[Rfam]
RNA sequence: ACGGAAGUCCGGUACGGCCAAGAUCGAUCCGGAAGAGAAGGGUCGACCUCCCAAGCUGGACGACCGAGCACGGUUCCCGGCACCCACGCGGAGUCAUAGCCGCGAUAAUGGCAGAAGUGUUGCGGGCCUGCGUAAUUGCGAAGAGCGGACGGAAUCGACGGCCCUUUGGGUGGGGCUGCAACCGGAAGCGUCGCAAGAUCGCCGAGGCCAUCCCACGCGACCCACAGAUGCACGCUUGGUAACCGAGAUCCGUGCUAGCGGGCGGCGAUCCGAAAGCUUUCGGUAGCCGCCCGCUUUUAUGC
Numbered sequence: 001a002c003g004g005a006a007g008u009c010c011g012g013u014a015c016g017g018c019c020a021a022g023a024u025c026g027a028u029c030c031g032g033a034a035g036a037g038a039a040g041g042g043u044c045g046a047c048c049u050c051c052c053a054a055g056c057u058g059g060a061c062g063a064c065c066g067a068g069c070a071c072g073g074u075u076c077c078c079g080g081c082a083c084c085c086a087c088g089c090g091g092a093g094u095c096a097u098a099g100c101c102g103c104g105a106u107a108a109u110g111g112c113a114g115a116a117g118u119g120u121u122g123c124g125g126g127c128c129u130g131c132g133u134a135a136u137u138g139c140g141a142a143g144a145g146c147g148g149a150c151g152g153a154a155u156c157g158a159c160g161g162c163c164c165u166u167u168g169g170g171u172g173g174g175g176c177u178g179c180a181a182c183c184g185g186a187a188g189c190g191u192c193g194c195a196a197g198a199u200c201g202c203c204g205a206g207g208c209c210a211u212c213c214c215a216c217g218c219g220a221c222c223c224a225c226a227g228a229u230g231c232a233c234g235c236u237u238g239g240u241a242a243c244c245g246a247g248a249u250c251c252g253u254g255c256u257a258g259c260g261g262g263c264g265g266c267g268a269u270c271c272g273a274a275a276g277c278u279u280u281c282g283g284u285a286g287c288c289g290c291c292c293g294c295u296u297u298u299a300u301g302c
Stems, first nucleotide, its partner, number of pairs: 003065002007061006016052002021049002025045006067256007078245003084239003088235003093231002099112003119221006125209005130202003136196006145189002150184003159178007258294009268284001270283003
Rfam assigns this 302-nucleotide RNA sequence from Mycobacterium cookii to the family "Mycobacterium smegmatis small RNA 1".
About the family: Mycobacterium smegmatis small RNA 1 is highly expressed during stationary phase of growth.
NCBI's taxonomy places the organism under Bacteria, Actinomycetota, Actinomycetes, Mycobacteriales, Mycobacterium.